RNA sequence: GUCGAGCCUAGGUCGGCCACCCGAAAAAACCGGACACCUUCAUCGGCUGGCUCGGCGUUUUUCGUGAAGG
Numbered sequence: 001g002u003c004g005a006g007c008c009u010a011g012g013u014c015g016g017c018c019a020c021c022c023g024a025a026a027a028a029a030c031c032g033g034a035c036a037c038c039u040u041c042a043u044c045g046g047c048u049g050g051c052u053c054g055g056c057g058u059u060u061u062u063c064g065u066g067a068a069g070g
Base pairs, nucleotide, nucleotide: 001056002055003054004053005052006051007050008049011022012021030046031045032044033043037070038069039068040067041066042065

The record is a 70-nucleotide sequence from Burkholderia ambifaria, which matches "int-alpA RNA" in Rfam. Taxonomically the source falls in Burkholderia ambifaria (Bacteria, Betaproteobacteria, Burkholderia, Burkholderia cepacia complex). Pairs were carried over by alignment from the consensus structure, which is taken from published work.